[Rfam]
RNA: Eukaryotic large subunit ribosomal RNA, nucleotides 2343 to 2905
Organism: Drosophila yakuba
RNA sequence: GGGAAUCCGACUGUCUAAUUAAAACAAAGCAUUGUGAUGGCCCUAGCGGGUGUUGACACAAUGUGAUUUCUGCCUAGUGCUCUGAAUGUCAAAGUGAAGAAAUUCAAGUAAGCGCGGGUCAACGGCGGGAGUAACUAUGACUCUCUCUGUAUCACAAGUUAUCCCUUGGGAGUGUGACGAUAGGCGUCUUAAGAAAGACUGACAAACUAAUACGUUUCUAUGUGCGAAGAUGGCUAAAUCUUCCGUCGGAUGUGCCGGUAGCAUUCGUUCACAUACAUCUGCCUGUUGCCUUGGCACAAUAUCAAAAAGGCAUAAACAUCGCACAUAUUGGUUAUUUACGGCUAUGAGGAUGGUUUUAGUACGUAGGCGUUGCGGAACCUCGGUUCAGAUAGAGCAAUGAAUCGUGCAUGCUAGGUAAACUGACCACACGAAAAAUGGCAGCCCUUGUAUCUUUCGAAGAUUUCCAUACCUUUGCGAUCAAAAAAAAAAAAAACAAAAAAAUAGCCAAAUGCCUCGUCAUCUAAUUAGUGACGCGCAUGAAUGGAUUAACGAGAUUCCUACUG
Numbered sequence: 001g002g003g004a005a006u007c008c009g010a011c012u013g014u015c016u017a018a019u020u021a022a023a024a025c026a027a028a029g030c031a032u033u034g035u036g037a038u039g040g041c042c043c044u045a046g047c048g049g050g051u052g053u054u055g056a057c058a059c060a061a062u063g064u065g066a067u068u069u070c071u072g073c074c075u076a077g078u079g080c081u082c083u084g085a086a087u088g089u090c091a092a093a094g095u096g097a098a099g100a101a102a103u104u105c106a107a108g109u110a111a112g113c114g115c116g117g118g119u120c121a122a123c124g125g126c127g128g129g130a131g132u133a134a135c136u137a138u139g140a141c142u143c144u145c146u147c148u149g150u151a152u153c154a155c156a157a158g159u160u161a162u163c164c165c166u167u168g169g170g171a172g173u174g175u176g177a178c179g180a181u182a183g184g185c186g187u188c189u190u191a192a193g194a195a196a197g198a199c200u201g202a203c204a205a206a207c208u209a210a211u212a213c214g215u216u217u218c219u220a221u222g223u224g225c226g227a228a229g230a231u232g233g234c235u236a237a238a239u240c241u242u243c244c245g246u247c248g249g250a251u252g253u254g255c256c257g258g259u260a261g262c263a264u265u266c267g268u269u270c271a272c273a274u275a276c277a278u279c280u281g282c283c284u285g286u287u288g289c290c291u292u293g294g295c296a297c298a299a300u301a302u303c304a305a306a307a308a309g310g311c312a313u314a315a316a317c318a319u320c321g322c323a324c325a326u327a328u329u330g331g332u333u334a335u336u337u338a339c340g341g342c343u344a345u346g347a348g349g350a351u352g353g354u355u356u357u358a359g360u361a362c363g364u365a366g367g368c369g370u371u372g373c374g375g376a377a378c379c380u381c382g383g384u385u386c387a388g389a390u391a392g393a394g395c396a397a398u399g400a401a402u403c404g405u406g407c408a409u410g411c412u413a414g415g416u417a418a419a420c421u422g423a424c425c426a427c428a429c430g431a432a433a434a435a436u437g438g439c440a441g442c443c444c445u446u447g448u449a450u451c452u453u454u455c456g457a458a459g460a461u462u463u464c465c466a467u468a469c470c471u472u473u474g475c476g477a478u479c480a481a482a483a484a485a486a487a488a489a490a491a492a493a494c495a496a497a498a499a500a501a502u503a504g505c506c507a508a509a510u511g512c513c514u515c516g517u518c519a520u521c522u523a524a525u526u527a528g529u530g531a532c533g534c535g536c537a538u539g540a541a542u543g544g545a546u547u548a549a550c551g552a553g554a555u556u557c558c559u560a561c562u563g
Base pairs, nucleotide, nucleotide: 001559002558003557004556005555006554007553008551009550012026013025014024029064030063031062032061033060034059035058036057040051041050042049043048068545069544070543072126073125074124077123078122079119080118081117082116084115087114088113089112095106096105097104098103127145128144129143130142131141132140146500516532517531518530519529520528